[Rfam]
RNA sequence: AAGGCACCUCGUUCGGUGAGGCGUCGCCACGGACACAGGCCACUGACCCCACGACGUCGAGAGACGCCCAGGUUCAGGACAGGUCUCCCCGGCCUAAGGGGUGACCCCAAGUGGCUGCACCGCUCGGGUGCUACGCCGUGGCGUGCCAAAGCUCUGACGAGUUCAGGGGUGCCGG
Numbered sequence: 001a002a003g004g005c006a007c008c009u010c011g012u013u014c015g016g017u018g019a020g021g022c023g024u025c026g027c028c029a030c031g032g033a034c035a036c037a038g039g040c041c042a043c044u045g046a047c048c049c050c051a052c053g054a055c056g057u058c059g060a061g062a063g064a065c066g067c068c069c070a071g072g073u074u075c076a077g078g079a080c081a082g083g084u085c086u087c088c089c090c091g092g093c094c095u096a097a098g099g100g101g102u103g104a105c106c107c108c109a110a111g112u113g114g115c116u117g118c119a120c121c122g123c124u125c126g127g128g129u130g131c132u133a134c135g136c137c138g139u140g141g142c143g144u145g146c147c148a149a150a151g152c153u154c155u156g157a158c159g160a161g162u163u164c165a166g167g168g169g170u171g172c173c174g175g
Stems, first nucleotide, its partner, number of pairs: 005171006011158002013097001015153003020147003025143008039115005045075002048072002055066004082106004088100003117131003
The family of this 175-nucleotide RNA from Kitasatospora indigofera is "M-box riboswitch aptamer (ykoK leader)". The pairing is the family consensus, mapped onto this sequence. M-box riboswitch, also know as ykoK leader is described as a metaloregulatory RNA that sense divalent metals and function as a genetic control element of genes related to divalent metal transport in bacteria. It was first reported upstream of the B.subtilis ykoK gene and genes with related functions in other bacteria. On this family, see Barrick et al., Proc Natl Acad Sci U S A 2004: "New RNA motifs suggest an expanded scope for riboswitches in bacterial genetic control". It scores 132 bits against the family's covariance model. Rfam links the family to the GO terms response to magnesium ion and regulation of gene expression.